Shown here is a 124-nucleotide sequence from Thalictrum thalictroides, a member of the family "Small nucleolar RNA snoR111". A search with the family's covariance model found it, with a score of 92 bits. It is annotated as an H/ACA-box small nucleolar RNA. Rfam 15.1 lists 533 matches to the family in 223 species. A reference for the family is Marker et al. (2002), "Experimental RNomics: identification of 140 candidates for small non-messenger RNAs in the plant Arabidopsis thaliana", Curr Biol.
RNA sequence: AAUGAAACAUGGAGACUCUAUGAAAUGUCUUUAUGUUGCUUAAACAGAGGAAUACCAAUAUGGCAAGAUAUCGUUUCAGUUGCCCUUUUAUUUGAUUGGCAAUUUGAUUGUUGCUUGUCUACAC
Numbered sequence: 001a002a003u004g005a006a007a008c009a010u011g012g013a014g015a016c017u018c019u020a021u022g023a024a025a026u027g028u029c030u031u032u033a034u035g036u037u038g039c040u041u042a043a044a045c046a047g048a049g050g051a052a053u054a055c056c057a058a059u060a061u062g063g064c065a066a067g068a069u070a071u072c073g074u075u076u077c078a079g080u081u082g083c084c085c086u087u088u089u090a091u092u093u094g095a096u097u098g099g100c101a102a103u104u105u106g107a108u109u110g111u112u113g114c115u116u117g118u119c120u121a122c123a124c
Stems, first nucleotide, its partner, number of pairs: 006037011062120002065116003070108004079103006087095002
Dot-bracket structure: .....(((((((((((..........)))))))))))........................((.(((..((((.....((((((..((.....))..)))))).)))).....)))..))....
Description:
The source organism's lineage runs through Eukaryota, Tracheophyta, Magnoliopsida, Mesangiospermae and Thalictrum. Its family is annotated with RNA processing and nucleolus in the Gene Ontology.